Rfam assigns this 76-nucleotide RNA sequence from Halanaerobium saccharolyticum to the family "c-di-GMP-I riboswitch aptamer". It scores 53 bits against the family's covariance model. Rfam describes the family as follows. GEMM was predicted in a large-scale screen for bacterial structured RNA regulatory elements.
RNA sequence: UCUUUUAAAGGGUAAAACUGCUUUGAGGCAGUGACACAAAGCUAAGGAUCUCAACUUGAGAUAGCCGGCUGCUAAA
Numbered sequence: 001u002c003u004u005u006u007a008a009a010g011g012g013u014a015a016a017a018c019u020g021c022u023u024u025g026a027g028g029c030a031g032u033g034a035c036a037c038a039a040a041g042c043u044a045a046g047g048a049u050c051u052c053a054a055c056u057u058g059a060g061a062u063a064g065c066c067g068g069c070u071g072c073u074a075a076a
Stems, first nucleotide, its partner, number of pairs: 012037002017032006040070004046066002048062006